[Rfam]
RNA: mir-8364 microRNA precursor family
Organism: Pristionchus pacificus
RNA sequence: UCUUCAUUUCGCUCACUCCCUCGUCGCUCUGACCGGUGAGAGAGUGAGUGAAAUGAAGAGA
Numbered sequence: 001u002c003u004u005c006a007u008u009u010c011g012c013u014c015a016c017u018c019c020c021u022c023g024u025c026g027c028u029c030u031g032a033c034c035g036g037u038g039a040g041a042g043a044g045u046g047a048g049u050g051a052a053a054u055g056a057a058g059a060g061a
Stems, first nucleotide, its partner, number of pairs: 001059007010050001012048006020040003